[Rfam]
RNA sequence: GUUUUUGCUGGUGGAGCAUCAUCAAGAUUCACAUAGCAUUUUUAGGGCUUUUUAGCCCUAUGGUUUAUUGAUAUGGGAAUCUUGAUGAUGCUGCAGCGGCGAAAAA
Numbered sequence: 001g002u003u004u005u006u007g008c009u010g011g012u013g014g015a016g017c018a019u020c021a022u023c024a025a026g027a028u029u030c031a032c033a034u035a036g037c038a039u040u041u042u043u044a045g046g047g048c049u050u051u052u053u054a055g056c057c058c059u060a061u062g063g064u065u066u067a068u069u070g071a072u073a074u075g076g077g078a079a080u081c082u083u084g085a086u087g088a089u090g091c092u093g094c095a096g097c098g099g100c101g102a103a104a105a106a
Stems, first nucleotide, its partner, number of pairs: 010097001012095002015092016032075002